[Rfam]
RNA sequence: GAGCAACUUAGGAUUUUAGGCUCCCCGGCAGGACCGCUGCCGGGCCAAACCUCCGGGGGCUGGCGGCCCCGGCAGGUCAAAAUCUUUCCGCCGGGA
Numbered sequence: 001g002a003g004c005a006a007c008u009u010a011g012g013a014u015u016u017u018a019g020g021c022u023c024c025c026c027g028g029c030a031g032g033a034c035c036g037c038u039g040c041c042g043g044g045c046c047a048a049a050c051c052u053c054c055g056g057g058g059g060c061u062g063g064c065g066g067c068c069c070c071g072g073c074a075g076g077u078c079a080a081a082a083u084c085u086u087u088c089c090g091c092c093g094g095g096a
Base pairs, nucleotide, nucleotide: 001023002022003021004020011085012084013083014082015081016080024044025043026042027041028040029039030038031037049077050076051075053072054071055070056069057068058067